[Rfam]
RNA sequence: CCCUCCCCGGUGCCAACAGUCCAGGCAGAGACGGGGGACCCAGGUCUCCGGGCAAGCGCUCAUGUUGAGCCAGCCCUAGGGGUGAAGCCGCACCGCCACGAUUCCCAGUGGCCACGGCCGGAUGACCUCAUCCGAAUCCGACAGCUAACUCCGCAGGCGUCGAGAGGCAAUCA
Numbered sequence: 001c002c003c004u005c006c007c008c009g010g011u012g013c014c015a016a017c018a019g020u021c022c023a024g025g026c027a028g029a030g031a032c033g034g035g036g037g038a039c040c041c042a043g044g045u046c047u048c049c050g051g052g053c054a055a056g057c058g059c060u061c062a063u064g065u066u067g068a069g070c071c072a073g074c075c076c077u078a079g080g081g082g083u084g085a086a087g088c089c090g091c092a093c094c095g096c097c098a099c100g101a102u103u104c105c106c107a108g109u110g111g112c113c114a115c116g117g118c119c120g121g122a123u124g125a126c127c128u129c130a131u132c133c134g135a136a137u138c139c140g141a142c143a144g145c146u147a148a149c150u151c152c153g154c155a156g157g158c159g160u161c162g163a164g165a166g167g168c169a170a171u172c173a
Base pairs, nucleotide, nucleotide: 003030004029005028032153033152034151035150036149041079080139081138082137088117089116090115120133121132122131123130
A member of the RNA family "c-di-AMP riboswitch aptamer (ydaO/yuaA leader)" from Arthrobacter sp. SRS-W-1-2016, 173 nucleotides long. The match comes from Rfam's covariance-model search (48 bits). The pairing is the family consensus, mapped onto this sequence.